[Rfam]
RNA: Bacterial large subunit ribosomal RNA, nucleotides 15 to 614
Organism: Pseudonocardiaceae bacterium YIM PH 21723
RNA sequence: GAGCAAACGGUGGAUGUCUUGGCACCAGGAGCCGAUGAAGGACGUAGAAGACUGCGAUAAGCCUCGGGGAGUUGUCAAUCGAGCUGUGAUCCGAGGAUUUCCGAAUGGGGAAACCCAGCACCAGUCAUGUGGUGUUACCCGCGCCUGAAUAUAUAGGGCGUGUGGGGGGAACGCGGGGAAGUGAAACAUCUCAGUACCCGCAGGAAGAGAAAACAACCGUGAUUCCGUGAGUAGUGGCGAGCGAAAGCGGAUGAGGCUAAACCGUCUUUGUGUGAUACCCGGCAGGGGUUGCAUUGACGGGGUCGUGGGACGUCUUGUCCAGGUCUGCCGGCCUGGAGCGAAGUCAAAAAUGCUUGGGUUAGGGGAACCUGUCUGGAAAGCAGGACCGUAGUGGGUGAGAGUCCCGUACCUGAAAACCGAAGCACUUCGUUGGGAAUGUUCCCAAGUAGCAGCGUACUCGUGAAAUUCGCUGUGAAUCUGGCGGGACCACCCGCUAAGCCUAAAUACUCCCUGGUGACCGAUAGCGGACUAGUACCGUGAGGGAAAGAUGAAAAGUACCCCGGGAGGGGAGUGAAAGAGUACCUGAAACCGUUUGCUUAC
Dot-bracket structure: ((((((((((.....(((..(((((((((((((......((((((........))).....(((((((..(((........))).....)))))))...)))....(((....)))(((((((......))))))).(((((((((.........))))))).)).))...((((((.....((....))......))))).).........((....))..((((((.....((.....))....)))))..((((....(((((.............................)))))......(((...(((................................((.(((((.((((.(((...((((.(......)))))..(...).(((.......)))...)))...)))).))))).)).....))).....))).....((((((.(.........).))))))......(((((......)))))..))))..)..)).))))))).))...............((....))....)).........((((....)))).............).....))))))))))..
Numbered sequence: 001g002a003g004c005a006a007a008c009g010g011u012g013g014a015u016g017u018c019u020u021g022g023c024a025c026c027a028g029g030a031g032c033c034g035a036u037g038a039a040g041g042a043c044g045u046a047g048a049a050g051a052c053u054g055c056g057a058u059a060a061g062c063c064u065c066g067g068g069g070a071g072u073u074g075u076c077a078a079u080c081g082a083g084c085u086g087u088g089a090u091c092c093g094a095g096g097a098u099u100u101c102c103g104a105a106u107g108g109g110g111a112a113a114c115c116c117a118g119c120a121c122c123a124g125u126c127a128u129g130u131g132g133u134g135u136u137a138c139c140c141g142c143g144c145c146u147g148a149a150u151a152u153a154u155a156g157g158g159c160g161u162g163u164g165g166g167g168g169g170a171a172c173g174c175g176g177g178g179a180a181g182u183g184a185a186a187c188a189u190c191u192c193a194g195u196a197c198c199c200g201c202a203g204g205a206a207g208a209g210a211a212a213a214c215a216a217c218c219g220u221g222a223u224u225c226c227g228u229g230a231g232u233a234g235u236g237g238c239g240a241g242c243g244a245a246a247g248c249g250g251a252u253g254a255g256g257c258u259a260a261a262c263c264g265u266c267u268u269u270g271u272g273u274g275a276u277a278c279c280c281g282g283c284a285g286g287g288g289u290u291g292c293a294u295u296g297a298c299g300g301g302g303u304c305g306u307g308g309g310a311c312g313u314c315u316u317g318u319c320c321a322g323g324u325c326u327g328c329c330g331g332c333c334u335g336g337a338g339c340g341a342a343g344u345c346a347a348a349a350a351u352g353c354u355u356g357g358g359u360u361a362g363g364g365g366a367a368c369c370u371g372u373c374u375g376g377a378a379a380g381c382a383g384g385a386c387c388g389u390a391g392u393g394g395g396u397g398a399g400a401g402u403c404c405c406g407u408a409c410c411u412g413a414a415a416a417c418c419g420a421a422g423c424a425c426u427u428c429g430u431u432g433g434g435a436a437u438g439u440u441c442c443c444a445a446g447u448a449g450c451a452g453c454g455u456a457c458u459c460g461u462g463a464a465a466u467u468c469g470c471u472g473u474g475a476a477u478c479u480g481g482c483g484g485g486a487c488c489a490c491c492c493g494c495u496a497a498g499c500c501u502a503a504a505u506a507c508u509c510c511c512u513g514g515u516g517a518c519c520g521a522u523a524g525c526g527g528a529c530u531a532g533u534a535c536c537g538u539g540a541g542g543g544a545a546a547g548a549u550g551a552a553a554a555g556u557a558c559c560c561c562g563g564g565a566g567g568g569g570a571g572u573g574a575a576a577g578a579g580u581a582c583c584u585g586a587a588a589c590c591g592u593u594u595g596c597u598u599a600c
Stems, first nucleotide, its partner, number of pairs: 001598010016583001017548002021519002023516007030508002032168002040102003043056003062096007071084003107116003117136007138165002140162007172203001173201005183190002213220002223504001224251005234242002254501004262300005307443003313435003348427002351424005357418004362411003368384004373380001387391001393405003449473006456466001480495005535542002558569004